[Rfam]
RNA sequence: UGACCAUGGGGCCGGGUUGUUCCGCGUCGGUAGAGCGGCAUGACCUAGGGGUAAAGGGGUUACCUCCGCGAACGCGGGCCGGGUCAGGCGAAGC
Numbered sequence: 001u002g003a004c005c006a007u008g009g010g011g012c013c014g015g016g017u018u019g020u021u022c023c024g025c026g027u028c029g030g031u032a033g034a035g036c037g038g039c040a041u042g043a044c045c046u047a048g049g050g051g052u053a054a055a056g057g058g059g060u061u062a063c064c065u066c067c068g069c070g071a072a073c074g075c076g077g078g079c080c081g082g083g084u085c086a087g088g089c090g091a092a093g094c
Stems, first nucleotide, its partner, number of pairs: 001086005010080004014046005020040001022038004027033001048066007
The family of this 94-nucleotide RNA sequence from Aquipseudomonas alcaligenes is "ivy-DE RNA". It is one of the family's seed sequences.